RNA sequence: AUAAUUCUUCAGGGCAGGGUGCAAUUCCCUACCGGCGGUAUAGCCGCGAGCCUUAGAUAGGCAUGAUUCGGUGAAACUCCGAAGCCGACAGUAAAGUCUGGAUGAAAGAAGAACAAU
Numbered sequence: 001a002u003a004a005u006u007c008u009u010c011a012g013g014g015c016a017g018g019g020u021g022c023a024a025u026u027c028c029c030u031a032c033c034g035g036c037g038g039u040a041u042a043g044c045c046g047c048g049a050g051c052c053u054u055a056g057a058u059a060g061g062c063a064u065g066a067u068u069c070g071g072u073g074a075a076a077c078u079c080c081g082a083a084g085c086c087g088a089c090a091g092u093a094a095a096g097u098c099u100g101g102a103u104g105a106a107a108g109a110a111g112a113a114c115a116a117u
Stems, first nucleotide, its partner, number of pairs: 005113006017029003031097002033087002035047004043085001052061001067083005089100003
RNA: FMN riboswitch aptamer (RFN element)